[Rfam]
RNA sequence: CCAGCAGGGACACCUGGAGAGGUUGCACUCUCUCAGCUCUGUCCGUGUGGCGUAUGGGAGUGUAGGCCUUUGGGCUCCGUGACAUACAGUCCCCUUCCACGCUGCUGGAGAGCAAGUUGGACCUCCCCGGUCUGCAUCCUGCAUAUUCCUACUGCUUCUCUGAGUCUUUGGACUGUGACAGGGGAGAUAAACCAUGCAGGAGACAUCU
Numbered sequence: 001c002c003a004g005c006a007g008g009g010a011c012a013c014c015u016g017g018a019g020a021g022g023u024u025g026c027a028c029u030c031u032c033u034c035a036g037c038u039c040u041g042u043c044c045g046u047g048u049g050g051c052g053u054a055u056g057g058g059a060g061u062g063u064a065g066g067c068c069u070u071u072g073g074g075c076u077c078c079g080u081g082a083c084a085u086a087c088a089g090u091c092c093c094c095u096u097c098c099a100c101g102c103u104g105c106u107g108g109a110g111a112g113c114a115a116g117u118u119g120g121a122c123c124u125c126c127c128c129g130g131u132c133u134g135c136a137u138c139c140u141g142c143a144u145a146u147u148c149c150u151a152c153u154g155c156u157u158c159u160c161u162g163a164g165u166c167u168u169u170g171g172a173c174u175g176u177g178a179c180a181g182g183g184g185a186g187a188u189a190a191a192c193c194a195u196g197c198a199g200g201a202g203a204c205a206u207c208u
Stems, first nucleotide, its partner, number of pairs: 001108007008044005014036003018031004047100004056093004060087001062085002065080001138200007155186006164173003
The record is a 208-nucleotide sequence from Python bivittatus, which matches "Small nucleolar RNA SNORA73 family" in Rfam. On this family, see Cervelli et al., J Mol Evol 2002: "Comparative Structure Analysis of Vertebrate U17 Small Nucleolar RNA (snoRNA)". The match comes from Rfam's covariance-model search (181 bits). The family has 66 seed sequences and 2,326 matches in Rfam 15.1. Rfam describes the family as follows. U17 (SNORA73A and SNORA73B) also known as E1 belongs to the H/ACA class of small nucleolar RNAs (snoRNAs). Vertebrate U17 is intron-encoded and ranges in length from 200-230 nucleotides, longer than most snoRNAs. It is annotated as an H/ACA-box small nucleolar RNA.